[Rfam]
Nucleotides: 304
Base pairs, nucleotide, nucleotide: 001040002039003038004023005022006021007020008019009018028037029036030035043304044303045302047300048299049298050297051296052295053294056291057290058288059287060286061284062283063282065280068278070276073273074272075271076270077269078262079261080260081259082258083257085255087253088252089251091250092249097248098247099246100245101244102243103242104241106236107235110233111232112231113230115227116226117225118224119223120222121221122220123219125164126163127162128161129160130159132157133156135154136153137152138151139150141148142147165170172217173216174215175214176213183208184207185206190201191200192199
Number, partner (000 for none) and nucleotide at each position: 001040g002039c003038c004023g005022a006021g007020c008019u009018u010000c011000g012000u013000a014000a015000c016000g017000u018009g019008g020007g021006c022005u023004u024000g025000u026000a027000a028037c029036u030035u031000g032000a033000a034000u035030g036029a037028g038003g039002g040001c041000a042000u043304u044303a045302a046000u047300g048299u049298g050297g051296u052295g053294g054000a055000a056291u057290g058288u059287u060286g061284g062283g063282c064000u065280g066000a067000u068278c069000c070276a071000g072000a073273a074272g075271g076270u077269u078262g079261g080260a081259c082258u083257u084000u085255g086000u087253g088252g089251g090000c091250u092249a093000u094000u095000c096000a097248c098247u099246g100245g101244c102243c103242u104241g105000c106236c107235c108000u109000a110233u111232c112231c113230a114000a115227g116226c117225a118224u119223a120222g121221a122220g123219u124000u125164g126163g127162g128161c129160c130159a131000u132157g133156u134000a135154g136153c137152c138151c139150a140000a141148g142147c143000g144000a145000a146000u147142g148141c149000a150139u151138g152137g153136g154135c155000c156133g157132c158000u159130u160129g161128g162127c163126u164125c165170u166000u167000a168000a169000a170165g171000u172217g173216g174215g175214g176213u177000g178000g179000a180000c181000c182000g183208c184207g185206u186000g187000a188000g189000g190201c191200u192199g193000g194000u195000u196000u197000c198000a199192c200191a201190g202000a203000g204000c205000a206185a207184c208183g209000a210000a211000u212000a213176a214175c215174u216173u217172c218000c219123g220122c221121u222120c223119u224118a225117u226116g227115u228000a229000g230113u231112g232111g233110a234000a235107g236106g237000a238000u239000c240000a241104u242103g243102g244101g245100u246099c247098a248097g249092u250091g251089c252088u253087c254000a255085c256000u257083g258082a259081g260080u261079c262078c263000a264000a265000c266000a267000a268000a269077a270076g271075c272074c273073u274000g275000a276070u277000a278068g279000g280065c281000u282063g283062c284061u285000c286060c287059a288058a289000c290057u291056a292000a293000a294053c295052c296051a297050u298049c299048a300047u301000u302045u303044u304043a
The record is a 304-nucleotide RNA sequence from Solanum tuberosum, which matches "Plant signal recognition particle RNA" in Rfam. Taxonomically the source falls in Solanum (Eukaryota, Viridiplantae, Magnoliopsida, lamiids). The family's RNA type in Rfam is non-coding RNA gene. Its family is annotated with signal recognition particle, endoplasmic reticulum targeting and SRP-dependent cotranslational protein targeting to membrane, signal sequence recognition in the Gene Ontology.